[Rfam]
RNA sequence: UACUACCAAACCCUAUUUCCACCUCCACGUGGUGACCGCUGGGAGCUCUUCUUAACGAAAAGCAGCAGACGGAGAAGG
Numbered sequence: 001u002a003c004u005a006c007c008a009a010a011c012c013c014u015a016u017u018u019c020c021a022c023c024u025c026c027a028c029g030u031g032g033u034g035a036c037c038g039c040u041g042g043g044a045g046c047u048c049u050u051c052u053u054a055a056c057g058a059a060a061a062g063c064a065g066c067a068g069a070c071g072g073a074g075a076a077g078g
Base pairs, nucleotide, nucleotide: 012078013077014076016074017073018072019071021033022032023031045063046062047061049059050058051057
Source information:
The family of this 78-nucleotide RNA from Hermetia illucens is "drz-agam-1 ribozyme". The family has 7 seed sequences and 10,507 matches in Rfam 15.1. The match comes from Rfam's covariance-model search (38 bits).